[Rfam]
RNA sequence: UUCCCUUUGUCAUCCUAUGCCUGGAGAUCGUGAUAAGGCAGGGACAGCAAAGGGAUGC
Dot-bracket structure: .((((((.((..((((..((((.............)))).))))..)).))))))...
A member of the RNA family "mir-204 microRNA precursor family" from Salmo salar, 58 nucleotides long. Taxonomically the source falls in Salmo (Eukaryota, Metazoa, Euteleosteomorpha, Salmonidae). Rfam 15.1 lists 1,730 matches to the family in 644 species. It is one of the family's seed sequences.